[Rfam]
Overview:
A member of the RNA family "Bacterial RNase P class A" from Horticoccus luteus, 490 nucleotides long.
RNA sequence: UUUCGGGGCCUGGUCGUCGCUCCUUGUUCUUUGAUCCCGAGGCGCGAGUAACACCGCGCUCGUUGAGGAAUGAGGAGAGGAAAGUCCGGACACCGCAGGGCAGGAUGCCGCACGAGCUUCAUCGCAAGUGCGGGCGGCAGGCGUGAAGGCCUGUCGACGGAGAGUGUCACAGAAAACAGACAGCCAGACGUGACGCGGCGAAAGCCGGGUGACGUGGGGUGAUGGUGAAAAGGUGGGGUAAGAGCCCACCGCGCCGGCAGCAAUGGCGGCGGCACGAAAAACCCCUUCCGGUGCAAGGCAAAAUAGGUGACUGGGCGGCCCGCCCAACAGUCACGGGUAUGCUGCAGCGAGACGCGCGAGGCUGCCGGCGGCGCAAGCCGCUCGCGCCGGCGCCGAUCGCCGCGUGGGCCGUGAGGUCAACGCGAGAGAAAUGACGGCUGAAGCGCCGCAAGGCGUGGAACAGAAUCCGGCUUACCGGCCCCGAAACUAA
Numbered sequence: 001u002u003u004c005g006g007g008g009c010c011u012g013g014u015c016g017u018c019g020c021u022c023c024u025u026g027u028u029c030u031u032u033g034a035u036c037c038c039g040a041g042g043c044g045c046g047a048g049u050a051a052c053a054c055c056g057c058g059c060u061c062g063u064u065g066a067g068g069a070a071u072g073a074g075g076a077g078a079g080g081a082a083a084g085u086c087c088g089g090a091c092a093c094c095g096c097a098g099g100g101c102a103g104g105a106u107g108c109c110g111c112a113c114g115a116g117c118u119u120c121a122u123c124g125c126a127a128g129u130g131c132g133g134g135c136g137g138c139a140g141g142c143g144u145g146a147a148g149g150c151c152u153g154u155c156g157a158c159g160g161a162g163a164g165u166g167u168c169a170c171a172g173a174a175a176a177c178a179g180a181c182a183g184c185c186a187g188a189c190g191u192g193a194c195g196c197g198g199c200g201a202a203a204g205c206c207g208g209g210u211g212a213c214g215u216g217g218g219g220u221g222a223u224g225g226u227g228a229a230a231a232g233g234u235g236g237g238g239u240a241a242g243a244g245c246c247c248a249c250c251g252c253g254c255c256g257g258c259a260g261c262a263a264u265g266g267c268g269g270c271g272g273c274a275c276g277a278a279a280a281a282c283c284c285c286u287u288c289c290g291g292u293g294c295a296a297g298g299c300a301a302a303a304u305a306g307g308u309g310a311c312u313g314g315g316c317g318g319c320c321c322g323c324c325c326a327a328c329a330g331u332c333a334c335g336g337g338u339a340u341g342c343u344g345c346a347g348c349g350a351g352a353c354g355c356g357c358g359a360g361g362c363u364g365c366c367g368g369c370g371g372c373g374c375a376a377g378c379c380g381c382u383c384g385c386g387c388c389g390g391c392g393c394c395g396a397u398c399g400c401c402g403c404g405u406g407g408g409c410c411g412u413g414a415g416g417u418c419a420a421c422g423c424g425a426g427a428g429a430a431a432u433g434a435c436g437g438c439u440g441a442a443g444c445g446c447c448g449c450a451a452g453g454c455g456u457g458g459a460a461c462a463g464a465a466u467c468c469g470g471c472u473u474a475c476c477g478g479c480c481c482c483g484a485a486a487c488u489a490a
Stems, first nucleotide, its partner, number of pairs: 001486010012439007020077016082473003086470005091293004098321004103289003107285001108133005134158001135156008159284002164282002167277002181224002183220003188215004232250006251273001252271005258265002297343004307334005312326005
Rfam classes the family as a ribozyme. The match comes from Rfam's covariance-model search (182 bits).